The record is a 212-nucleotide RNA sequence from Myotis lucifugus, which matches "Small nucleolar RNA U3" in Rfam. The family is grouped with related families in Rfam's "U3 clan". Pairs were carried over by alignment from the consensus structure, which is taken from published work. The literature on the family includes a 2010 paper in RNA Biol by Marz and Stadler, "Comparative analysis of eukaryotic U3 snoRNA".
RNA sequence: AACACUAUACUUUCAGGGAUCAUUUCUAUAGUUCUUUACUAGAGAAGUUUCUCUGAAUGUGUAGAGCACCCAAAACCACGAGGAGGAGAUGCAGCAUCCUCUCCUGAGCGUGAAGCUGGCUCUUGGUGUUACUUCAGUAACUGCCACUUGCCAUUGAUGAUCGUUCUUCUCUCUCUUGGGAAAGAAGAGGGAGAGGAUGCAUUCUGAGUGGU
Numbered sequence: 001a002a003c004a005c006u007a008u009a010c011u012u013u014c015a016g017g018g019a020u021c022a023u024u025u026c027u028a029u030a031g032u033u034c035u036u037u038a039c040u041a042g043a044g045a046a047g048u049u050u051c052u053c054u055g056a057a058u059g060u061g062u063a064g065a066g067c068a069c070c071c072a073a074a075a076c077c078a079c080g081a082g083g084a085g086g087a088g089a090u091g092c093a094g095c096a097u098c099c100u101c102u103c104c105u106g107a108g109c110g111u112g113a114a115g116c117u118g119g120c121u122c123u124u125g126g127u128g129u130u131a132c133u134u135c136a137g138u139a140a141c142u143g144c145c146a147c148u149u150g151c152c153a154u155u156g157a158u159g160a161u162c163g164u165u166c167u168u169c170u171c172u173c174u175c176u177u178g179g180g181a182a183a184g185a186a187g188a189g190g191g192a193g194a195g196g197a198u199g200c201a202u203u204c205u206g207a208g209u210g211g212u
Stems, first nucleotide, its partner, number of pairs: 002040001009032003015027004049065002054061001075212005094200012108164003118152003124146004128141005167186004172181003
The family's RNA type in Rfam is C/D-box small nucleolar RNA.
A search with the family's covariance model found it, with a score of 182 bits.
Taxonomically the source falls in Myotis (Eukaryota, Bilateria, Tetrapoda, Chiroptera).
Rfam describes the family as follows. Small nucleolar RNAs (snoRNAs) are involved in the processing and modification of rRNA in the nucleolus. There are two main classes of snoRNAs: the box C/D class, and the box H/ACA class. U3 snoRNA is a member of the box C/D class.